Record summary: The family of this 110-nucleotide RNA is "drum RNA". The base pairs follow the family's consensus structure, which is taken from published work. Firmicutes, Bacteroidetes (1 example), Proteobacteria (2 examples), Spirochaetes (2 examples). By type it is a small RNA.

RNA sequence: AAGUGAUGAUGCGUGUGAUGUUCCGGGAAACAGUGCAUGGCUGAGCUUCAUAAGGGUUGUUUGUUUACCAAAACCCGGAUAGGCAGAGAUGCCGAAAGAAAACAUUCAGG
Numbered sequence: 001a002a003g004u005g006a007u008g009a010u011g012c013g014u015g016u017g018a019u020g021u022u023c024c025g026g027g028a029a030a031c032a033g034u035g036c037a038u039g040g041c042u043g044a045g046c047u048u049c050a051u052a053a054g055g056g057u058u059g060u061u062u063g064u065u066u067a068c069c070a071a072a073a074c075c076c077g078g079a080u081a082g083g084c085a086g087a088g089a090u091g092c093c094g095a096a097a098g099a100a101a102a103c104a105u106u107c108a109g110g
Stems, first nucleotide, its partner, number of pairs: 001048004011041002013038005019032003023078004062104002082093004